[Rfam]
RNA sequence: UACUAAUAAACCUUAUCUCCACCUCCACGUGGUGACCGCUGGGAAAUCUUUCUUAACGAAAAGUUACAGACGGAGAAGG
Numbered sequence: 001u002a003c004u005a006a007u008a009a010a011c012c013u014u015a016u017c018u019c020c021a022c023c024u025c026c027a028c029g030u031g032g033u034g035a036c037c038g039c040u041g042g043g044a045a046a047u048c049u050u051u052c053u054u055a056a057c058g059a060a061a062a063g064u065u066a067c068a069g070a071c072g073g074a075g076a077a078g079g
Base pairs, nucleotide, nucleotide: 012079013078014077016075018073019072021033022032023031045065046064047063049061050060051059052058
Rfam assigns this 79-nucleotide RNA from Hermetia illucens to the family "drz-agam-1 ribozyme". The literature on the family includes a 2009 paper in Science by Webb et al., "Widespread occurrence of self-cleaving ribozymes". The family's consensus secondary structure is taken from published work. Taxonomically the source falls in Hermetia (Eukaryota, Endopterygota, Brachycera, Hermetiinae).